[Rfam]
RNA sequence: CGGAAAUGAUGAAAUAGAGAUGCUUGGGUGUUGAAUGUUGCGUGACUGAAAAUUUUAAUAUUUAAUUCUUCUAGUUAAAUAUUUUAGUUAGAUAAUAGAGUGUGUGUGUGCGUGUGUGUGCUUGUGGUGGCUAUGGAAAGGGGGCACUGAAUGGUGAUGCUGAUAUUGGAGUGCAUCUGAGGCUGUUGUAGAAAAUAACAUGGGUUGUUGAUUACAACAUUGCCUGUGAUUAUAACCCAAGAACAGCUCACCUAACUAGCCUGGCACCCUGAAAAUCUCUAACAGGUUCAGUAUACAUGAUCCUGUGAUCUGAUCCAA
Numbered sequence: 001c002g003g004a005a006a007u008g009a010u011g012a013a014a015u016a017g018a019g020a021u022g023c024u025u026g027g028g029u030g031u032u033g034a035a036u037g038u039u040g041c042g043u044g045a046c047u048g049a050a051a052a053u054u055u056u057a058a059u060a061u062u063u064a065a066u067u068c069u070u071c072u073a074g075u076u077a078a079a080u081a082u083u084u085u086a087g088u089u090a091g092a093u094a095a096u097a098g099a100g101u102g103u104g105u106g107u108g109u110g111c112g113u114g115u116g117u118g119u120g121c122u123u124g125u126g127g128u129g130g131c132u133a134u135g136g137a138a139a140g141g142g143g144g145c146a147c148u149g150a151a152u153g154g155u156g157a158u159g160c161u162g163a164u165a166u167u168g169g170a171g172u173g174c175a176u177c178u179g180a181g182g183c184u185g186u187u188g189u190a191g192a193a194a195a196u197a198a199c200a201u202g203g204g205u206u207g208u209u210g211a212u213u214a215c216a217a218c219a220u221u222g223c224c225u226g227u228g229a230u231u232a233u234a235a236c237c238c239a240a241g242a243a244c245a246g247c248u249c250a251c252c253u254a255a256c257u258a259g260c261c262u263g264g265c266a267c268c269c270u271g272a273a274a275a276u277c278u279c280u281a282a283c284a285g286g287u288u289c290a291g292u293a294u295a296c297a298u299g300a301u302c303c304u305g306u307g308a309u310c311u312g313a314u315c316c317a318a
Stems, first nucleotide, its partner, number of pairs: 002316003184219008194209006
RNA: Small Cajal body-specific RNA 7
Organism: Octodon degus